[Rfam]
RNA sequence: GGCGAGAACCAUGUGAAUCAAGUAGUGUAGUGAUUCACAUGGUUCUCA
Numbered sequence: 001g002g003c004g005a006g007a008a009c010c011a012u013g014u015g016a017a018u019c020a021a022g023u024a025g026u027g028u029a030g031u032g033a034u035u036c037a038c039a040u041g042g043u044u045c046u047c048a
Stems, first nucleotide, its partner, number of pairs: 004047017

The family of this 48-nucleotide RNA sequence from Cornus canadensis is "Plastid-ccsA-ndhD-2 3UTR RNA". Pairs were carried over by alignment from the consensus structure, which was predicted with LocARNA. About the family: Plastid ccsA-ndhD-2 is a non-coding RNA (ncRNA) recognised in plastids. It was found in the three prime untranslated region (3UTR) of ccsA and ndhD genes, its 3UTR location suggests a role in transcript maturation. For this family Rfam cites "Control of plastid gene expression: 3' inverted repeats act as mRNA processing and stabilizing elements, but do not terminate transcription" (Stern and Gruissem, Cell, 1987).